[Rfam]
Shown here is a 43-nucleotide sequence, a member of the family "L31-Actinobacteria ribosomal protein leader".
Rfam classes the family as a cis-regulatory leader.
The family's consensus secondary structure is taken from published work.
RNA sequence: UCGGCUCCGGUUCACGCUCGCAGCAGCGGGCGACCCGGCGGCU
Numbered sequence: 001u002c003g004g005c006u007c008c009g010g011u012u013c014a015c016g017c018u019c020g021c022a023g024c025a026g027c028g029g030g031c032g033a034c035c036c037g038g039c040g041g042c043u
Stems, first nucleotide, its partner, number of pairs: 003043003007038004015032007